Rfam assigns this 94-nucleotide RNA from Neotoma lepida to the family "G-CSF factor stem-loop destabilising element (SLDE)".
Gene Ontology term of the family: nuclear-transcribed mRNA poly(A) tail shortening.
The organism belongs to Neotoma, within Eukaryota.
Rfam 15.1 lists 132 matches to the family in 132 species.
The literature on the family includes a 2002 paper in Mol Cell Biol by Putland et al., "RNA destabilization by the granulocyte colony-stimulating factor stem-loop destabilizing element involves a single stem-loop that promotes deadenylation".
RNA sequence: CUGAGACCCUCUCUCAGGGCCCCGGCAGCAUCAGGAGGUCUCCCUUUUUGGAGACUAGACAUCCCUGUUUAAUAUUUAAACAGCAGUGUUCCCA
Numbered sequence: 001c002u003g004a005g006a007c008c009c010u011c012u013c014u015c016a017g018g019g020c021c022c023c024g025g026c027a028g029c030a031u032c033a034g035g036a037g038g039u040c041u042c043c044c045u046u047u048u049u050g051g052a053g054a055c056u057a058g059a060c061a062u063c064c065c066u067g068u069u070u071a072a073u074a075u076u077u078a079a080a081c082a083g084c085a086g087u088g089u090u091c092c093c094a
Base pairs, nucleotide, nucleotide: 003023005021007019008018009017010016031059032058038055039054040053041052042051043050065083066082067081068080069079070078071077072076